Shown here is a 544-nucleotide part of an RNA from Croceivirga radicis, a member of the family "Bacterial large subunit ribosomal RNA". The match comes from Rfam's covariance-model search (2732 bits). The family's consensus secondary structure is taken from published work. Its Rfam clan is "LSU clan". Lineage of the source: Bacteria > Pseudomonadati > Flavobacteriia > Flavobacteriaceae > Croceivirga.
[Rfam]
RNA sequence: UAAGCAAGGGCGUAUGGGGGAUGCCUAGGCUACCCAGAGGCGAUGAAGGACGUGAUAAGCUGCGAAAAGCCACGGGGAACUGCACAUGAGUGUUGAUCCGUGGAUAUCCGAAUGGGGCAACCCGCUAUGUUGAAGGCAUAGCAUCGAAAGAGGCCAACCCGCUGAACUGAAACAUCUAAGUAGGCGGAGGAAAAGAAAACAAGAGUGAUUCCGAUAGUAGUGGCGAGCGAAAUCGGACCAGCCCAAACCAAUGUUGUUCCGGCAAUAUUGGGGUUGUAGGACCACGACAUUCUUUGCGUAACGAACUAGAACAUGUUGGAAAGCAUGGCCAAAGACGGUGAUAGCCCGGUAUAGGUAAGGCGCGUUAAAGAUAGUGGUAUCCUGAGUAGGACGGGGCACGUGAAACCCUGUUUGAAUCCGGCGGGACCAUCCGCCAAGGCUAAAUACUCCUGGGAGACCGAUAGUGUACCAGUACCGUGAGGGAAAGGUGAAAAGAACCCUGAACAAGGGAGUGAAAUAGACCCUGAAACCAUACGCCUACAAG
Numbered sequence: 001u002a003a004g005c006a007a008g009g010g011c012g013u014a015u016g017g018g019g020g021a022u023g024c025c026u027a028g029g030c031u032a033c034c035c036a037g038a039g040g041c042g043a044u045g046a047a048g049g050a051c052g053u054g055a056u057a058a059g060c061u062g063c064g065a066a067a068a069g070c071c072a073c074g075g076g077g078a079a080c081u082g083c084a085c086a087u088g089a090g091u092g093u094u095g096a097u098c099c100g101u102g103g104a105u106a107u108c109c110g111a112a113u114g115g116g117g118c119a120a121c122c123c124g125c126u127a128u129g130u131u132g133a134a135g136g137c138a139u140a141g142c143a144u145c146g147a148a149a150g151a152g153g154c155c156a157a158c159c160c161g162c163u164g165a166a167c168u169g170a171a172a173c174a175u176c177u178a179a180g181u182a183g184g185c186g187g188a189g190g191a192a193a194a195g196a197a198a199a200c201a202a203g204a205g206u207g208a209u210u211c212c213g214a215u216a217g218u219a220g221u222g223g224c225g226a227g228c229g230a231a232a233u234c235g236g237a238c239c240a241g242c243c244c245a246a247a248c249c250a251a252u253g254u255u256g257u258u259c260c261g262g263c264a265a266u267a268u269u270g271g272g273g274u275u276g277u278a279g280g281a282c283c284a285c286g287a288c289a290u291u292c293u294u295u296g297c298g299u300a301a302c303g304a305a306c307u308a309g310a311a312c313a314u315g316u317u318g319g320a321a322a323g324c325a326u327g328g329c330c331a332a333a334g335a336c337g338g339u340g341a342u343a344g345c346c347c348g349g350u351a352u353a354g355g356u357a358a359g360g361c362g363c364g365u366u367a368a369a370g371a372u373a374g375u376g377g378u379a380u381c382c383u384g385a386g387u388a389g390g391a392c393g394g395g396g397c398a399c400g401u402g403a404a405a406c407c408c409u410g411u412u413u414g415a416a417u418c419c420g421g422c423g424g425g426a427c428c429a430u431c432c433g434c435c436a437a438g439g440c441u442a443a444a445u446a447c448u449c450c451u452g453g454g455a456g457a458c459c460g461a462u463a464g465u466g467u468a469c470c471a472g473u474a475c476c477g478u479g480a481g482g483g484a485a486a487g488g489u490g491a492a493a494a495g496a497a498c499c500c501u502g503a504a505c506a507a508g509g510g511a512g513u514g515a516a517a518u519a520g521a522c523c524c525u526g527a528a529a530c531c532a533u534a535c536g537c538c539u540a541c542a543a544g
Stems, first nucleotide, its partner, number of pairs: 008539010023524001024488002028459002030456002033454005038448002040154002048109003051064003070103007079091003114123003124142007144151002158189001159187005169176002199206002209444001210237005220228002240441004248271007278383003282377004292370005302360001306354003312327005330334001336348003389413008420435005475482002498510004